[Rfam]
RNA sequence: UUUGAGCCGAGGGGCCAUGCGGAAACGCCAGGUUGGCGCUAACCAGAAACGGUAGCAAGGAGCCCGCAUCACAUGAAGGACUGACUGAAGUGUGGUGAAAUACUGAGCCCUCGCAAAGGGCAGUCAGGUAGUAGCAUG
Numbered sequence: 001u002u003u004g005a006g007c008c009g010a011g012g013g014g015c016c017a018u019g020c021g022g023a024a025a026c027g028c029c030a031g032g033u034u035g036g037c038g039c040u041a042a043c044c045a046g047a048a049a050c051g052g053u054a055g056c057a058a059g060g061a062g063c064c065c066g067c068a069u070c071a072c073a074u075g076a077a078g079g080a081c082u083g084a085c086u087g088a089a090g091u092g093u094g095g096u097g098a099a100a101u102a103c104u105g106a107g108c109c110c111u112c113g114c115a116a117a118g119g120g121c122a123g124u125c126a127g128g129u130a131g132u133a134g135c136a137u138g
Base pairs, nucleotide, nucleotide: 012065013064014063015062018057019056020055031044032043033042034041035040067097068096070094071093072092073091074090081127082126083125084124101133102132103131104130107121108120109119110118